[Rfam]
RNA sequence: AGUAGCCACUGGGGGAGUCUUUAUGAUUGGACUGAGACGCAUGUUGCGAACCCUUUGAACCUGAUCUGGUCAUACCAGCGUAGGAAAGUGGGCCGCAGAGUAA
Numbered sequence: 001a002g003u004a005g006c007c008a009c010u011g012g013g014g015g016a017g018u019c020u021u022u023a024u025g026a027u028u029g030g031a032c033u034g035a036g037a038c039g040c041a042u043g044u045u046g047c048g049a050a051c052c053c054u055u056u057g058a059a060c061c062u063g064a065u066c067u068g069g070u071c072a073u074a075c076c077a078g079c080g081u082a083g084g085a086a087a088g089u090g091g092g093c094c095g096c097a098g099a100g101u102a103a
Stems, first nucleotide, its partner, number of pairs: 006091005011054004017032004039047003060084004066078004